Notes: The record is a 277-nucleotide sequence from Nannospalax galili, which matches "Mason-Pfizer monkey virus packaging signal" in Rfam. By type it is a cis-regulatory element. The match comes from Rfam's covariance-model search (144 bits). A reference for the family is Mustafa et al. (2004), "Mutational analysis of the predicted secondary RNA structure of the Mason-Pfizer monkey virus packaging signal", Virus Res.

RNA sequence: UGGCGCCCAACGUGGGGCCUGGAUACCAGGGGACAACUUGAGGGUCCAACGACGAAAAGAAGAAGGGGUGCGCACCCACUCAAAUAGUUCAGAGACGUAGCAGUAGCCUGCUGUGACCGAGCCGACAGGUAAGUUGGUCAUUCAAUCAUGGGGCAAGAAUUAAGUCAGCAUCAGAAAUAUGUGAUACAGUUAAGAGAAGCUUUACAGGCAAGAGGAGUAAAGGUUACAACUGAGGAUUUAUUUCAUUUCUUUGAUUUUGUAAAAGACAUCUGCCCAU
Numbered sequence: 001u002g003g004c005g006c007c008c009a010a011c012g013u014g015g016g017g018c019c020u021g022g023a024u025a026c027c028a029g030g031g032g033a034c035a036a037c038u039u040g041a042g043g044g045u046c047c048a049a050c051g052a053c054g055a056a057a058a059g060a061a062g063a064a065g066g067g068g069u070g071c072g073c074a075c076c077c078a079c080u081c082a083a084a085u086a087g088u089u090c091a092g093a094g095a096c097g098u099a100g101c102a103g104u105a106g107c108c109u110g111c112u113g114u115g116a117c118c119g120a121g122c123c124g125a126c127a128g129g130u131a132a133g134u135u136g137g138u139c140a141u142u143c144a145a146u147c148a149u150g151g152g153g154c155a156a157g158a159a160u161u162a163a164g165u166c167a168g169c170a171u172c173a174g175a176a177a178u179a180u181g182u183g184a185u186a187c188a189g190u191u192a193a194g195a196g197a198a199g200c201u202u203u204a205c206a207g208g209c210a211a212g213a214g215g216a217g218u219a220a221a222g223g224u225u226a227c228a229a230c231u232g233a234g235g236a237u238u239u240a241u242u243u244c245a246u247u248u249c250u251u252u253g254a255u256u257u258u259g260u261a262a263a264a265g266a267c268a269u270c271u272g273c274c275c276a277u
Stems, first nucleotide, its partner, number of pairs: 006031003012026003037051001039049001086130001088128001096119002100114004135156001137154001139153001141152004161204003164200002212252006221239005262277001265274001267272001
Dot-bracket structure: .....(((...(((.........)))..))).....(.(.........).)..................................(.(.......((..((((.......))))...))........).)....(.(.(.((((....)))))).)....(((((.................................)).))).......((((((...(((((.........))))).......)))))).........(..(.(....).)..)